[Rfam]
RNA sequence: GUAUAUAAUCGGCAAACUUUCUGAAAAGGAAGGACGCAAAGCCAUGGGUCUAACGAUAUGAUAGAAUCUAAGACAGCCAGGUUGCAAUC
Numbered sequence: 001g002u003a004u005a006u007a008a009u010c011g012g013c014a015a016a017c018u019u020u021c022u023g024a025a026a027a028g029g030a031a032g033g034a035c036g037c038a039a040a041g042c043c044a045u046g047g048g049u050c051u052a053a054c055g056a057u058a059u060g061a062u063a064g065a066a067u068c069u070a071a072g073a074c075a076g077c078c079a080g081g082u083u084g085c086a087a088u089c
Base pairs, nucleotide, nucleotide: 012037013036017032018031019030020029021028022027040083041082042081043080045079046078047077048074049073050072055068056067057066
RNA: c-di-GMP-I riboswitch aptamer